[Rfam]
RNA sequence: AUACUUACCUGGCAGGGGAGAUACCAUGAUCAAGAAGGUGGUUCACAAGGUGAGGGCUUACUUACCAUUGCACUCCGGUUAUGCUGACCCGUCGCGAAUUCCCAAAUGUUAGGAAUCUGACUGCAUAAUUUGUGGUAGUGGGGACUGCGUUGGCUCACCCCUGG
Numbered sequence: 001a002u003a004c005u006u007a008c009c010u011g012g013c014a015g016g017g018g019a020g021a022u023a024c025c026a027u028g029a030u031c032a033a034g035a036a037g038g039u040g041g042u043u044c045a046c047a048a049g050g051u052g053a054g055g056g057c058u059u060a061c062u063u064a065c066c067a068u069u070g071c072a073c074u075c076c077g078g079u080u081a082u083g084c085u086g087a088c089c090c091g092u093c094g095c096g097a098a099u100u101c102c103c104a105a106a107u108g109u110u111a112g113g114a115a116u117c118u119g120a121c122u123g124c125a126u127a128a129u130u131u132g133u134g135g136u137a138g139u140g141g142g143g144a145c146u147g148c149g150u151u152g153g154c155u156c157a158c159c160c161c162u163g164g
Stems, first nucleotide, its partner, number of pairs: 012124004018046001020044002023042005049093004056089001063081002065078002095119002098116005139163005146157002149154001
Dot-bracket structure: ...........((((..(.((.(((((..........))))))).)..((((...(......((((..........)).)).......))))).((.(((((.........))))).)).))))..............(((((..((.(....).)).))))).
A member of the RNA family "U1 spliceosomal RNA" from Perca fluviatilis, 164 nucleotides long. Rfam links the family to the GO terms U1 snRNP, mRNA 5'-splice site recognition and pre-mRNA 5'-splice site binding. By type it is a spliceosomal small nuclear RNA. The match comes from Rfam's covariance-model search (93 bits). The family has 100 seed sequences and 40,184 matches in Rfam 15.1.